[Rfam]
RNA sequence: GCGGGGGUGCCCGAGUGGUCAAAGGGGACAGGCUUAGGACCUGUUGGCGUUAGGCUUCCAGGGUUCGAAUCCCUGCCCCCGCA
Numbered sequence: 001g002c003g004g005g006g007g008u009g010c011c012c013g014a015g016u017g018g019u020c021a022a023a024g025g026g027g028a029c030a031g032g033c034u035u036a037g038g039a040c041c042u043g044u045u046g047g048c049g050u051u052a053g054g055c056u057u058c059c060a061g062g063g064u065u066c067g068a069a070u071c072c073c074u075g076c077c078c079c080c081g082c083a
Stems, first nucleotide, its partner, number of pairs: 001082007010026003028044005059075005
RNA: tRNA